The family of this 600-nucleotide part of an RNA from Strigamia maritima is "Eukaryotic small subunit ribosomal RNA". The base pairs follow the family's consensus structure, which is taken from published work. The organism belongs to Strigamia, within Eukaryota.

RNA sequence: UAUCUGGUUGAUCCUGCCAGCGGUGAUAUGCUCAGAUAAAAGAUUAAGCCAUGCAUGUCUAAGAACAUACUAGCUCAAAGUGAAUCUGCGAACGGCUCAUUACAACAGCUAUAACCUAAUCGGACUACCGUAAGGUGGAUAACUGCGAUAAUUUUGGAGCUAAUACGUGCAUGAGAGCGCUGAUCGUAAGUGACGCGCGCAUUUGUUAGAAUAAGACCAACAUGGGCUUGCCCGUGUUGGCGAAACUCUGAACAACUUCGCAGAUCGCAGGCUUCGGCCGGCGACAUUCCGAUCGGGUUUCUGCCUUAUCAACUAUUGAUGGGAGUCCAAGUGACUGCCAUGGUGUUGACGGGUAACGGAGAAUAAGGGUUCGACUCCGGAGAGGGAGCCUGAGAAACGGCUACCACAUCCAAGGAAGGCAGCAGGCGCGUAAAUUACCCACUCUUAAUACGAGGAGGUAGUGACUAUCAAUAACGAGGCAAGACUCUUUGAGUCUUGCUAUUGGAAUGGGAACAAUGUAAACCCUUUAUCGAGAACCUAUGAGAGGGCAAGUCUGGUGCCAGCAGCCGCGGUAAUUCCAGCUCUCAAGGCGUAUAUCGU
Numbered sequence: 001u002a003u004c005u006g007g008u009u010g011a012u013c014c015u016g017c018c019a020g021c022g023g024u025g026a027u028a029u030g031c032u033c034a035g036a037u038a039a040a041a042g043a044u045u046a047a048g049c050c051a052u053g054c055a056u057g058u059c060u061a062a063g064a065a066c067a068u069a070c071u072a073g074c075u076c077a078a079a080g081u082g083a084a085u086c087u088g089c090g091a092a093c094g095g096c097u098c099a100u101u102a103c104a105a106c107a108g109c110u111a112u113a114a115c116c117u118a119a120u121c122g123g124a125c126u127a128c129c130g131u132a133a134g135g136u137g138g139a140u141a142a143c144u145g146c147g148a149u150a151a152u153u154u155u156g157g158a159g160c161u162a163a164u165a166c167g168u169g170c171a172u173g174a175g176a177g178c179g180c181u182g183a184u185c186g187u188a189a190g191u192g193a194c195g196c197g198c199g200c201a202u203u204u205g206u207u208a209g210a211a212u213a214a215g216a217c218c219a220a221c222a223u224g225g226g227c228u229u230g231c232c233c234g235u236g237u238u239g240g241c242g243a244a245a246c247u248c249u250g251a252a253c254a255a256c257u258u259c260g261c262a263g264a265u266c267g268c269a270g271g272c273u274u275c276g277g278c279c280g281g282c283g284a285c286a287u288u289c290c291g292a293u294c295g296g297g298u299u300u301c302u303g304c305c306u307u308a309u310c311a312a313c314u315a316u317u318g319a320u321g322g323g324a325g326u327c328c329a330a331g332u333g334a335c336u337g338c339c340a341u342g343g344u345g346u347u348g349a350c351g352g353g354u355a356a357c358g359g360a361g362a363a364u365a366a367g368g369g370u371u372c373g374a375c376u377c378c379g380g381a382g383a384g385g386g387a388g389c390c391u392g393a394g395a396a397a398c399g400g401c402u403a404c405c406a407c408a409u410c411c412a413a414g415g416a417a418g419g420c421a422g423c424a425g426g427c428g429c430g431u432a433a434a435u436u437a438c439c440c441a442c443u444c445u446u447a448a449u450a451c452g453a454g455g456a457g458g459u460a461g462u463g464a465c466u467a468u469c470a471a472u473a474a475c476g477a478g479g480c481a482a483g484a485c486u487c488u489u490u491g492a493g494u495c496u497u498g499c500u501a502u503u504g505g506a507a508u509g510g511g512a513a514c515a516a517u518g519u520a521a522a523c524c525c526u527u528u529a530u531c532g533a534g535a536a537c538c539u540a541u542g543a544g545a546g547g548g549c550a551a552g553u554c555u556g557g558u559g560c561c562a563g564c565a566g567c568c569g570c571g572g573u574a575a576u577u578c579c580a581g582c583u584c585u586c587a588a589g590g591c592g593u594a595u596a597u598c599g600u
Stems, first nucleotide, its partner, number of pairs: 004020005022598003026595007035469004041462001042429001048427003052424003057089002062087003069081002096382003106303003111298002115296002121291004135168003143159002146156003177198004185190001203255005217242001224233003265284004270279003305353003312344003319341004324336003357379004361372004384405002387402003407418001409416002435460001437459003443455004475504003478500010511531002513528001515527002541587006554581004563570002

Gene Ontology terms of the family: ribosome and structural constituent of ribosome.